[Rfam]
This 137-nucleotide RNA from Acidovorax delafieldii belongs to the Rfam family "radC RNA". The family's consensus secondary structure is taken from published work. Rfam classes the family as a cis-regulatory element.

Nucleotides: 137
Base pairs, nucleotide, nucleotide: 011036012035013034014033015032018031019030020029021028022027040061041060042059043058044057045056048082049080062078063077064076065075066074067073068072109137110136111135117131118130119129120128121127
Number, partner (000 for none) and nucleotide at each position: 001000a002000a003000g004000c005000u006000g007000c008000c009000c010000g011036c012035a013034u014033g015032u016000u017000c018031g019030c020029u021028g022027a023000u024000u025000c026000g027022u028021c029020a030019g031018c032015a033014c034013a035012u036011g037000c038000c039000a040061g041060c042059a043058g044057c045056c046000a047000g048082g049080g050000u051000u052000u053000c054000c055000a056045g057044g058043c059042u060041g061040c062078c063077g064076c065075g066074g067073g068072u069000c070000u071000c072068a073067c074066c075065c076064g077063c078062g079000u080049c081000a082048c083000c084000c085000a086000c087000c088000a089000g090000u091000c092000c093000g094000c095000a096000u097000c098000g099000c100000a101000u102000c103000c104000a105000u106000u107000g108000c109137g110136c111135g112000g113000a114000c115000g116000u117131g118130c119129g120128u121127c122000c123000u124000c125000g126000u127121g128120a129119c130118g131117c132000u133000g134000a135111u136110g137109c